Description
A member of the RNA family "Alphaproteobacterial ar15" from Rhizobium sp. BK251, 112 nucleotides long. The organism belongs to Rhizobium, within Bacteria.
[Rfam]
RNA sequence: AGCUGAUGCAUAUGGUGGCUUCUCUCCCAGUUCCACCGCAGCAGCUGUUCCCCUCUGGAGGUUCUUGACCUUCAAACCUAUAGGGCCCCGGUCACACCGGUGGCCCUCUUUU
Numbered sequence: 001a002g003c004u005g006a007u008g009c010a011u012a013u014g015g016u017g018g019c020u021u022c023u024c025u026c027c028c029a030g031u032u033c034c035a036c037c038g039c040a041g042c043a044g045c046u047g048u049u050c051c052c053c054u055c056u057g058g059a060g061g062u063u064c065u066u067g068a069c070c071u072u073c074a075a076a077c078c079u080a081u082a083g084g085g086c087c088c089c090g091g092u093c094a095c096a097c098c099g100g101u102g103g104c105c106c107u108c109u110u111u112u
Stems, first nucleotide, its partner, number of pairs: 001046005007040003015036004056074007082107006088100004
Dot-bracket structure: (((((.(((.....((((..............)))).))).))))).........(((((((.....))))))).......((((((((((.....)))).)))))).....
Overview
The base pairs follow the family's consensus structure.